[Rfam]
RNA: MIR6274 microRNA precursor family
Organism: Prunus dulcis
Nucleotides: 105
Base pairs, nucleotide, nucleotide: 002104003103004102005101012095013094014093015092016091018089019088020087022085025082026081027080028079029078030077031076032075033074034073035072036071037070038069039068040067041066042065043064045062046061047060049058050057
Number, partner (000 for none) and nucleotide at each position: 001000g002104g003103a004102u005101a006000a007000u008000a009000u010000u011000g012095u013094u014093u015092u016091g017000c018089u019088a020087u021000u022085u023000c024000c025082g026081g027080u028079c029078a030077a031076u032075a033074a034073c035072a036071c037070a038069a039068u040067g041066a042065u043064a044000c045062g046061u047060g048000a049058a050057a051000a052000a053000g054000u055000u056000a057050u058049u059000c060047c061046a062045c063000a064043u065042a066041u067040c068039a069038u070037u071036g072035u073034g074033u075032u076031g077030u078029u079028g080027g081026c082025c083000a084000a085022a086000a087020a088019u089018a090000a091016c092015a093014a094013a095012a096000a097000g098000u099000g100000u101005u102004a103003u104002c105000c